[Rfam]
RNA: Nitrogen stress-induced RNA 1
Organism: Alkalinema sp. CACIAM 70d
RNA sequence: UGGUAGAUGCACCCUGACUUAUCUCCCCGGAGGCUUUUAUAGCUUCUGGGGUUUUUCCG
Numbered sequence: 001u002g003g004u005a006g007a008u009g010c011a012c013c014c015u016g017a018c019u020u021a022u023c024u025c026c027c028c029g030g031a032g033g034c035u036u037u038u039a040u041a042g043c044u045u046c047u048g049g050g051g052u053u054u055u056u057c058c059g
Base pairs, nucleotide, nucleotide: 002013003012004011025051026050027049028048029047030046031045032044033043034042035041